RNA: CRISPR RNA direct repeat element
Organism: Symbiobacterium thermophilum
RNA sequence: GUAGCACCCGGCCGCGAGGCCGGGUGAGGAUUGAAAC
Numbered sequence: 001g002u003a004g005c006a007c008c009c010g011g012c013c014g015c016g017a018g019g020c021c022g023g024g025u026g027a028g029g030a031u032u033g034a035a036a037c
Stems, first nucleotide, its partner, number of pairs: 005026009